[Rfam]
RNA: Saccharopolyspora sRNA 350
RNA sequence: GUCGCGGUGAACUCCCAGACGCGCUCGUGCUCGGUGAGCCCCUCGUCGCCGAAGUGGUCGCCGUCGGCGAGGACGCCGAGCACCGCCGGCUCGCCGAACUUGCCGGUGCCCACCUUGUUGAUCCUGCCGUGCGCCACCAGGAAGACCUGGUCGACCGGGCGGCCGAGUUCGGUCAGCGGCUGCCCCGGGGCGAACUCCCGCUGCUCGAACCGCUCGGCCAGCGCGGCGAGAACCGCCGGGUCGUGGAAAUCGCGCAGCACCGGCAGCUCACCCAGUUCGUCCGGGAUCACCCGCACCUCGGAACCGGUCUGCACGAAUUCCACCCGGCCGUUGCCCACGGUGUACGUCAACCGCCGGUUGACCCGGUACGUACCGCCGGAAACCUGCACCCACGGCAGAAUACGCAGCAGCCACCGGGAGGUGAUGCCCUGCAUCUGCGGAGCGGUCUUGGUGGUGGUCGCCAGAUUACGCGCGGCGGCCGUGCUCAGCGAAAGCUGCGGCUGCCCG
Numbered sequence: 001g002u003c004g005c006g007g008u009g010a011a012c013u014c015c016c017a018g019a020c021g022c023g024c025u026c027g028u029g030c031u032c033g034g035u036g037a038g039c040c041c042c043u044c045g046u047c048g049c050c051g052a053a054g055u056g057g058u059c060g061c062c063g064u065c066g067g068c069g070a071g072g073a074c075g076c077c078g079a080g081c082a083c084c085g086c087c088g089g090c091u092c093g094c095c096g097a098a099c100u101u102g103c104c105g106g107u108g109c110c111c112a113c114c115u116u117g118u119u120g121a122u123c124c125u126g127c128c129g130u131g132c133g134c135c136a137c138c139a140g141g142a143a144g145a146c147c148u149g150g151u152c153g154a155c156c157g158g159g160c161g162g163c164c165g166a167g168u169u170c171g172g173u174c175a176g177c178g179g180c181u182g183c184c185c186c187g188g189g190g191c192g193a194a195c196u197c198c199c200g201c202u203g204c205u206c207g208a209a210c211c212g213c214u215c216g217g218c219c220a221g222c223g224c225g226g227c228g229a230g231a232a233c234c235g236c237c238g239g240g241u242c243g244u245g246g247a248a249a250u251c252g253c254g255c256a257g258c259a260c261c262g263g264c265a266g267c268u269c270a271c272c273c274a275g276u277u278c279g280u281c282c283g284g285g286a287u288c289a290c291c292c293g294c295a296c297c298u299c300g301g302a303a304c305c306g307g308u309c310u311g312c313a314c315g316a317a318u319u320c321c322a323c324c325c326g327g328c329c330g331u332u333g334c335c336c337a338c339g340g341u342g343u344a345c346g347u348c349a350a351c352c353g354c355c356g357g358u359u360g361a362c363c364c365g366g367u368a369c370g371u372a373c374c375g376c377c378g379g380a381a382a383c384c385u386g387c388a389c390c391c392a393c394g395g396c397a398g399a400a401u402a403c404g405c406a407g408c409a410g411c412c413a414c415c416g417g418g419a420g421g422u423g424a425u426g427c428c429c430u431g432c433a434u435c436u437g438c439g440g441a442g443c444g445g446u447c448u449u450g451g452u453g454g455u456g457g458u459c460g461c462c463a464g465a466u467u468a469c470g471c472g473c474g475g476c477g478g479c480c481g482u483g484c485u486c487a488g489c490g491a492a493a494g495c496u497g498c499g500g501c502u503g504c505c506c507g
Base pairs, nucleotide, nucleotide: 006390007389008388009387011385018328021325025322027320029318031316032315035313036312038310041307042306045305049301050300051299052298054233055232058229059228060227061226062225063224064223066110067109068108075103077102078101079100080099083096085094086093117222118221119220120219122217123216126213127212129210130209131206133204134203140197143196144195150191155188156187157186158185159184162177165174166173237293240290241289243287244286252280253279254278256277257276258275262269329342330341331340332339351379352378353377355375356374357373361371362370391431392430394428395427396426397425400422401421403418405416407415437476438475440473442471443470444469448464449463450462451461452460477506478505480503481502484499486497487496488495